Shown here is a 67-nucleotide sequence from Flavobacterium sp. 9AF, a member of the family "DUF805 RNA".
By type it is a cis-regulatory element.
Pairs were carried over by alignment from the consensus structure, which is taken from published work.
RNA sequence: CAAAUAUGGAGUCUAGAAACCAUUACAAACAGGGCGUAACCGAAAAGCCAUAUGAGUAGGGAAAAUU
Number, nucleotide and partner (000 for none) at each position: 001c000002a000003a000004a000005u000006a023007u022008g021009g020010a000011g000012u000013c000014u000015a000016g000017a000018a000019a000020c009021c008022a007023u006024u000025a000026c000027a000028a000029a000030c000031a000032g000033g049034g048035c047036g000037u000038a000039a000040c061041c060042g000043a000044a000045a000046a000047g035048c034049c033050a000051u000052a000053u000054g000055a000056g000057u000058a000059g000060g041061g040062a000063a000064a000065a000066u000067u000